[Rfam]
The family of this 48-nucleotide RNA sequence from Sulfitobacter sp. D7 is "Guanidine-II riboswitch aptamer (mini-ykkC)".
The family's consensus secondary structure is taken from published work.
A search with the family's covariance model found it, with a score of 37 bits.
RNA sequence: AAGCGAGGACGACCUCCCCCAUUUGGGCAGCCACUCGGGACGACCCGA
Numbered sequence: 001a002a003g004c005g006a007g008g009a010c011g012a013c014c015u016c017c018c019c020c021a022u023u024u025g026g027g028c029a030g031c032c033a034c035u036c037g038g039g040a041c042g043a044c045c046c047g048a
Stems, first nucleotide, its partner, number of pairs: 003018001005016004035048005